Shown here is a 141-nucleotide RNA sequence from Rhodamnia argentea, a member of the family "small nucleolar RNA snoR137". Taxonomically the source falls in Rhodamnia (Eukaryota, Streptophytina, Tracheophyta, rosids). The family has 4 seed sequences and 808 matches in Rfam 15.1. For this family Rfam cites "Mining small RNA sequencing data: a new approach to identify small nucleolar RNAs in Arabidopsis" (Chen and Wu, Nucleic Acids Res, 2009).
[Rfam]
RNA sequence: GUUGCUUCCUAAUGGUGAUCUCCCUGUAAUGAAAAGAUGAGGGAUGAUUCAAGUUUCCGAAGCAUAGAUUUCAGUCAGUGUUAAACAGCGCCAGCGUUAUGAUUCAUGUUGCGCUGGUGCUACCUGUCUGCUGAUAUAUUA
Numbered sequence: 001g002u003u004g005c006u007u008c009c010u011a012a013u014g015g016u017g018a019u020c021u022c023c024c025u026g027u028a029a030u031g032a033a034a035a036g037a038u039g040a041g042g043g044a045u046g047a048u049u050c051a052a053g054u055u056u057c058c059g060a061a062g063c064a065u066a067g068a069u070u071u072c073a074g075u076c077a078g079u080g081u082u083a084a085a086c087a088g089c090g091c092c093a094g095c096g097u098u099a100u101g102a103u104u105c106a107u108g109u110u111g112c113g114c115u116g117g118u119g120c121u122a123c124c125u126g127u128c129u130g131c132u133g134a135u136a137u138a139u140u141a
Stems, first nucleotide, its partner, number of pairs: 003064006016051003019047002021044005074135007087121003091117005